[Rfam]
RNA sequence: AUGUCGGUAAGAUAUGUUUGAUAUUCUUGGUUGUAUCUUCUGUAUCACCCAGGAAUCAAACAUAUUACCUAUCGACUG
Numbered sequence: 001a002u003g004u005c006g007g008u009a010a011g012a013u014a015u016g017u018u019u020g021a022u023a024u025u026c027u028u029g030g031u032u033g034u035a036u037c038u039u040c041u042g043u044a045u046c047a048c049c050c051a052g053g054a055a056u057c058a059a060a061c062a063u064a065u066u067a068c069c070u071a072u073c074g075a076c077u078g
Base pairs, nucleotide, nucleotide: 005074006073007072008071009070011066012065013064014063015062016061017060018059019058020057021056022055024053025052029050030049032047033046
The record is a 78-nucleotide sequence from Parnassius apollo, which matches "mir-190 microRNA precursor family" in Rfam. For this family Rfam cites "Cloning and expression of new microRNAs from zebrafish" (Kloosterman et al., Nucleic Acids Res, 2006). Gene Ontology terms of the family: miRNA-mediated post-transcriptional gene silencing and RISC complex. The family's consensus secondary structure was predicted with RNAalifold.